[Rfam]
RNA sequence: UCAGCCACAGAUGUCCAGCCACAAUUCUCGGUUGGCCGCAGACUCGUACAAGAAUUGCGUUUGGACAAUCAGUGGCGAA
Numbered sequence: 001u002c003a004g005c006c007a008c009a010g011a012u013g014u015c016c017a018g019c020c021a022c023a024a025u026u027c028u029c030g031g032u033u034g035g036c037c038g039c040a041g042a043c044u045c046g047u048a049c050a051a052g053a054a055u056u057g058c059g060u061u062u063g064g065a066c067a068a069u070c071a072g073u074g075g076c077g078a079a
Stems, first nucleotide, its partner, number of pairs: 004076004010069001012067006020059001022057007030049001
Dot-bracket structure: ...((((..(.((((((..(.(((((((.(..................).))))))).)..)))))).)...))))...
Source information
The family of this 79-nucleotide sequence from Homo sapiens is "mir-219 microRNA precursor family". Pairs were carried over by alignment from the consensus structure, which was predicted with RNAalifold.